[Rfam]
RNA sequence: UGAUGGCAAUGAUGAUUUUUGCAUUGUUUGCCUGACAAUAUAUGAAGGUAUUCAGUCACUACCUCAUCUGAUGCCAUCU
Numbered sequence: 001u002g003a004u005g006g007c008a009a010u011g012a013u014g015a016u017u018u019u020u021g022c023a024u025u026g027u028u029u030g031c032c033u034g035a036c037a038a039u040a041u042a043u044g045a046a047g048g049u050a051u052u053c054a055g056u057c058a059c060u061a062c063c064u065c066a067u068c069u070g071a072u073g074c075c076a077u078c079u
Base pairs, nucleotide, nucleotide: 002078003077004076005075006074007073
Rfam assigns this 79-nucleotide RNA from Cricetulus griseus to the family "Small nucleolar RNA SNORD11B". Taxonomically the source falls in Cricetulus (Eukaryota, Vertebrata, Tetrapoda, Cricetidae).